RNA: U1 spliceosomal RNA
Organism: Brassica rapa
RNA sequence: UCACUUACCUGGACAGGGUCAACUCAUGAUCAAGAAGAUGAGUGGCCUAGGCUAGUGACCUCCAUUGCACUUUAAGGAGGGGCGCUUAGUCUAAGGUCUCCCCAAGUGGGAGAGCCUGUGUCAUUAUUUGUGGAAGAGGGAGCCUGCGUUCGCGCGGCUCCUAC
Numbered sequence: 001u002c003a004c005u006u007a008c009c010u011g012g013a014c015a016g017g018g019u020c021a022a023c024u025c026a027u028g029a030u031c032a033a034g035a036a037g038a039u040g041a042g043u044g045g046c047c048u049a050g051g052c053u054a055g056u057g058a059c060c061u062c063c064a065u066u067g068c069a070c071u072u073u074a075a076g077g078a079g080g081g082g083c084g085c086u087u088a089g090u091c092u093a094a095g096g097u098c099u100c101c102c103c104a105a106g107u108g109g110g111a112g113a114g115c116c117u118g119u120g121u122c123a124u125u126a127u128u129u130g131u132g133g134a135a136g137a138g139g140g141a142g143c144c145u146g147c148g149u150u151c152g153c154g155c156g157g158c159u160c161c162u163a164c
Stems, first nucleotide, its partner, number of pairs: 012122004016048006023042005049092005055085003059081003062077002094117003097113003101109002138162004145156004